tpke11: a 72-nucleotide RNA from Biostraticola tofi. The literature on the family includes a 2016 paper in Proc Natl Acad Sci U S A by Righetti et al., "Temperature-responsive in vitro RNA structurome of Yersinia pseudotuberculosis". By type it is a small RNA. The match comes from Rfam's covariance-model search (60 bits). Its family is annotated with response to temperature stimulus in the Gene Ontology. The source organism's lineage runs through Bacteria, Pseudomonadati, Enterobacterales, Bruguierivoracaceae and Biostraticola. In Yersinia located in ICR upstream dnaJ (chaperone)gene.

[Rfam]
RNA sequence: CGCUGGCUACUGGCACGGGCGCGGGGGAAACCCUUCGCCCGUGCAAGCAUGUUGAGGGGUAGGAAAAAACAA
Numbered sequence: 001c002g003c004u005g006g007c008u009a010c011u012g013g014c015a016c017g018g019g020c021g022c023g024g025g026g027g028a029a030a031c032c033c034u035u036c037g038c039c040c041g042u043g044c045a046a047g048c049a050u051g052u053u054g055a056g057g058g059g060u061a062g063g064a065a066a067a068a069a070c071a072a
Base pairs, nucleotide, nucleotide: 013044014043015042016041017040018039019038020037021036023034024033025032026031